This 107-nucleotide RNA sequence from Oryza punctata belongs to the Rfam family "MIR168 microRNA precursor family". The family has 10 seed sequences and 518 matches in Rfam 15.1. Its family is annotated with miRNA-mediated post-transcriptional gene silencing and RISC complex in the Gene Ontology. The organism belongs to Oryza, within Eukaryota.
[Rfam]
RNA sequence: GCCGCCGCCGCCUCGGGCUCGCUUGGUGCAGAUCGGGACCCGCCAAAACCCGCGCCGCCGGGGCCGGAUCCCGCCUUGCACCAAGUGAAUCGGAGCCGGCGUAGCGG
Numbered sequence: 001g002c003c004g005c006c007g008c009c010g011c012c013u014c015g016g017g018c019u020c021g022c023u024u025g026g027u028g029c030a031g032a033u034c035g036g037g038a039c040c041c042g043c044c045a046a047a048a049c050c051c052g053c054g055c056c057g058c059c060g061g062g063g064c065c066g067g068a069u070c071c072c073g074c075c076u077u078g079c080a081c082c083a084a085g086u087g088a089a090u091c092g093g094a095g096c097c098g099g100c101g102u103a104g105c106g107g
Stems, first nucleotide, its partner, number of pairs: 013094002017090001019088002023084009034073005040067002

The family's consensus secondary structure was predicted with WAR.